Shown here is an 85-nucleotide RNA from Crocodylus porosus, a member of the family "Small nucleolar RNA SNORD60". Rfam 15.1 lists 825 matches to the family in 373 species. On this family, see Galardi et al., Mol Cell Biol 2002: "Purified box C/D snoRNPs are able to reproduce site-specific 2'-O-methylation of target RNA in vitro".

RNA sequence: AGCCAGUGAUGAGCCCAAUUGACUUCUGACACCUCGUAUGAGCGCUGCUGCUGCAGUCGCUGAUUACAUCCAUGUGCUGAGGCUC
Numbered sequence: 001a002g003c004c005a006g007u008g009a010u011g012a013g014c015c016c017a018a019u020u021g022a023c024u025u026c027u028g029a030c031a032c033c034u035c036g037u038a039u040g041a042g043c044g045c046u047g048c049u050g051c052u053g054c055a056g057u058c059g060c061u062g063a064u065u066a067c068a069u070c071c072a073u074g075u076g077c078u079g080a081g082g083c084u085c
Base pairs, nucleotide, nucleotide: 001084002083003082004081044057045056046055047054048053